[Rfam]
Nucleotides: 046
Stems, first nucleotide, its partner, number of pairs: 008040001010038008
Number, partner (000 for none) and nucleotide at each position: 001000a002000a003000g004000a005000g006000c007000a008040u009000c010038a011037a012036g013035u014034c015033a016032a017031u018000a019000a020000a021000g022000a023000c024000u025000g026000a027000g028000c029000a030000g031017a032016u033015u034014g035013a036012u037011u038010u039000a040008g041000g042000a043000a044000c045000a046000a